The record is a 79-nucleotide sequence from Trichechus manatus, which matches "mir-105 microRNA precursor family" in Rfam. The match comes from Rfam's covariance-model search (72 bits). On this family, see Ahn et al., Mol Hum Reprod 2010: "MicroRNA transcriptome in the newborn mouse ovaries determined by massive parallel sequencing".
RNA sequence: UGUGCAUCGUUGUCAAAUGCUCAGGCCUAUGGUGGCUGCUUACGCACUAUGGAUGUCUGAGCAUGUGCCAUGUUGUCUA
Dot-bracket structure: ...(((.(((.(.((.(((((((((((....((((.(((....))))))))...)))))))))).))).))).)))...
Numbered sequence: 001u002g003u004g005c006a007u008c009g010u011u012g013u014c015a016a017a018u019g020c021u022c023a024g025g026c027c028u029a030u031g032g033u034g035g036c037u038g039c040u041u042a043c044g045c046a047c048u049a050u051g052g053a054u055g056u057c058u059g060a061g062c063a064u065g066u067g068c069c070a071u072g073u074u075g076u077c078u079a
Stems, first nucleotide, its partner, number of pairs: 004076003008072003012068001014067002017064010027051001032050004037046003